[Rfam]
RNA sequence: CCAGAGGAUCGGGCGAUCGCCGCGGCGGCUUUAUGGCUUCCGGGGAGGAAAGUCCGGGCUCCAAGGAGUGACGGUGCCGGGUAACGCCCGGCGGGGGCGACCCCAGGGACAGUGCCACAGAAAGCAGACCGCCCGGCGGCCCUCACGGGUCCGGGUAAGGUCGAAAGGGUGCGGCAAGAGCGCACCGCGGGCCCGGUAACGGGAACGGCAUGGUAAACCCCACCGGGAGCAAGAUCGAAUAGGGACGGCAUAUGGGCUACUCCGCCCGGUCGUCCGGGUUGAUUGCUGGAGGCCGUGUGCGAGCGCGGUCCUAGAGGAAUGAUCGCCCAUCCGCCCUCGGGCGGUGGACAAAACCCGGCUUACAGAUCCUCUGGCGCU
Numbered sequence: 001c002c003a004g005a006g007g008a009u010c011g012g013g014c015g016a017u018c019g020c021c022g023c024g025g026c027g028g029c030u031u032u033a034u035g036g037c038u039u040c041c042g043g044g045g046a047g048g049a050a051a052g053u054c055c056g057g058g059c060u061c062c063a064a065g066g067a068g069u070g071a072c073g074g075u076g077c078c079g080g081g082u083a084a085c086g087c088c089c090g091g092c093g094g095g096g097g098c099g100a101c102c103c104c105a106g107g108g109a110c111a112g113u114g115c116c117a118c119a120g121a122a123a124g125c126a127g128a129c130c131g132c133c134c135g136g137c138g139g140c141c142c143u144c145a146c147g148g149g150u151c152c153g154g155g156u157a158a159g160g161u162c163g164a165a166a167g168g169g170u171g172c173g174g175c176a177a178g179a180g181c182g183c184a185c186c187g188c189g190g191g192c193c194c195g196g197u198a199a200c201g202g203g204a205a206c207g208g209c210a211u212g213g214u215a216a217a218c219c220c221c222a223c224c225g226g227g228a229g230c231a232a233g234a235u236c237g238a239a240u241a242g243g244g245a246c247g248g249c250a251u252a253u254g255g256g257c258u259a260c261u262c263c264g265c266c267c268g269g270u271c272g273u274c275c276g277g278g279u280u281g282a283u284u285g286c287u288g289g290a291g292g293c294c295g296u297g298u299g300c301g302a303g304c305g306c307g308g309u310c311c312u313a314g315a316g317g318a319a320u321g322a323u324c325g326c327c328c329a330u331c332c333g334c335c336c337u338c339g340g341g342c343g344g345u346g347g348a349c350a351a352a353a354c355c356c357g358g359c360u361u362a363c364a365g366a367u368c369c370u371c372u373g374g375c376g377c378u
Stems, first nucleotide, its partner, number of pairs: 001374010011363001012327007020045002023042003027038002050361003054358005059229004068261001072225005077091005092106001093104004107220002112218002114214003129160002131156003137153003140149003168186006187209001188207002192203004233284004243275006253268005291310008
The record is a 378-nucleotide RNA from Sphingomonas montanisoli, which matches "Bacterial RNase P class A" in Rfam.
NCBI's taxonomy places the organism under Bacteria, Pseudomonadota, Alphaproteobacteria, Sphingomonadales, Sphingomonas.
From the family's description: Ribonuclease P (RNase P) is a ubiquitous endoribonuclease, found in archaea, bacteria and eukarya as well as chloroplasts and mitochondria.
Rfam classes the family as a ribozyme.